About this RNA
Rfam assigns this 87-nucleotide RNA sequence from Argiope bruennichi to the family "HDV ribozyme from F. prausnitzii".
[Rfam]
Nucleotides: 087
Stems, first nucleotide, its partner, number of pairs: 001038007019031003045073007
Number, partner (000 for none) and nucleotide at each position: 001038g002037g003036g004035g005034a006033a007032c008000g009000a010000g011000a012000g013000u014000a015000g016000c017000c018000c019031a020030c021029c022000u023000c024000c025000a026000c027000g028000u029021g030020g031019u032007g033006u034005u035004c036003c037002c038001c039000g040000g041000g042000c043000a044000a045073c046072g047071a048070u049069g050068c051067a052000a053000u054000u055000c056000u057000u058000u059000u060000u061000g062000a063000u064000a065000a066000c067051u068050g069049c070048a071047u072046c073045g074000g075000c076000a077000a078000a079000g080000a081000g082000a083000c084000u085000a086000c087000u
Source information
A search with the family's covariance model found it, with a score of 46 bits. Rfam 15.1 lists 3,803 matches to the family in 91 species.